[Rfam]
RNA: Purine riboswitch aptamer
RNA sequence: UCAAAAUUAAUAAAAAAACGUCGUAUAAAGUCGAGAAUAUGGCUCGAAAGUUUCUACCUAGCUACCGUAAAUAGCUGGACUACGAGGUGUGAAUAUAGAAUA
Numbered sequence: 001u002c003a004a005a006a007u008u009a010a011u012a013a014a015a016a017a018a019c020g021u022c023g024u025a026u027a028a029a030g031u032c033g034a035g036a037a038u039a040u041g042g043c044u045c046g047a048a049a050g051u052u053u054c055u056a057c058c059u060a061g062c063u064a065c066c067g068u069a070a071a072u073a074g075c076u077g078g079a080c081u082a083c084g085a086g087g088u089g090u091g092a093a094u095a096u097a098g099a100a101u102a
Base pairs, nucleotide, nucleotide: 018088019087021085022084023083024082025081031047032046033045034044035043058078059077060076061075062074063073064072